[Rfam]
RNA sequence: GUUGGCUAUGGGGACAUGUACCCGGGGACGGUCGGAGGAAAGCUGGUGGGGUCCAUGUGCGCCAUCGCUGGUGUUCUAACCAUCUCGCUGCCGGUCCCCGUCAUCGUGUCGAAC
Number, nucleotide and partner (000 for none) at each position: 001g114002u113003u000004g000005g110006c000007u108008a107009u106010g105011g104012g000013g102014a101015c100016a000017u000018g097019u000020a095021c094022c000023c000024g000025g000026g000027g000028a000029c000030g000031g000032u000033c000034g000035g000036a000037g077038g076039a075040a074041a000042g000043c000044u000045g000046g000047u000048g000049g063050g062051g000052u000053c000054c000055a000056u000057g000058u000059g000060c000061g000062c050063c049064a000065u000066c000067g000068c000069u000070g000071g000072u000073g000074u040075u039076c038077u037078a000079a000080c000081c000082a000083u000084c000085u000086c000087g000088c000089u000090g000091c000092c000093g000094g021095u020096c000097c018098c000099c000100g015101u014102c013103a000104u011105c010106g009107u008108g007109u000110c005111g000112a000113a002114c001
RNA: Potassium channel RNA editing signal
Organism: Takifugu flavidus